A member of the RNA family "c-di-AMP riboswitch aptamer (ydaO/yuaA leader)" from Actinomadura viridilutea, 153 nucleotides long.

RNA sequence: CCGAGUCCGUCCCCGAUGCGGGGGACCGGAGCCGGGGACCCAGUCGGGCCGAUAAGGCCCCGGGGUGAAUCGGCGCGCCGGACGAGUGCGCCGUAGGGCUCUCUUCCAGGCCCGAAUCCGUCAGCUAACCCGGUAGGCGUCAUGGGAGACAAG
Numbered sequence: 001c002c003g004a005g006u007c008c009g010u011c012c013c014c015g016a017u018g019c020g021g022g023g024g025a026c027c028g029g030a031g032c033c034g035g036g037g038a039c040c041c042a043g044u045c046g047g048g049c050c051g052a053u054a055a056g057g058c059c060c061c062g063g064g065g066u067g068a069a070u071c072g073g074c075g076c077g078c079c080g081g082a083c084g085a086g087u088g089c090g091c092c093g094u095a096g097g098g099c100u101c102u103c104u105u106c107c108a109g110g111c112c113c114g115a116a117u118c119c120g121u122c123a124g125c126u127a128a129c130c131c132g133g134u135a136g137g138c139g140u141c142a143u144g145g146g147a148g149a150c151a152a153g
Stems, first nucleotide, its partner, number of pairs: 001137002006030003031134006041062001063119003071093008096113004

A search with the family's covariance model found it, with a score of 64 bits.